[Rfam]
RNA sequence: CCAUCUGUGCCACCAGAUGAGCCUACCGAUCUGAAUAAAGAGCGAUCGGGACAAUGUAACGAAGUGCAGCAAUGCACGGGGUGAGAAUCGUAAGAGGACAACCCUCCUGAUAACCAUAUGUCGGGUGAGUGC
Dot-bracket structure: .((((((......)))))).......((((((......)....)))))...............(((((....))))).((((.....((....)).....)))).((((((........)))))).......
Rfam assigns this 132-nucleotide RNA from Cysteiniphilum litorale to the family "Group II catalytic intron D1-D4-7". For this family Rfam cites "The ins and outs of group II introns" (Bonen and Vogel, Trends Genet, 2001). Rfam 15.1 lists 1,296 matches to the family in 705 species. A search with the family's covariance model found it, with a score of 85 bits. Its family is annotated with Group II intron splicing in the Gene Ontology.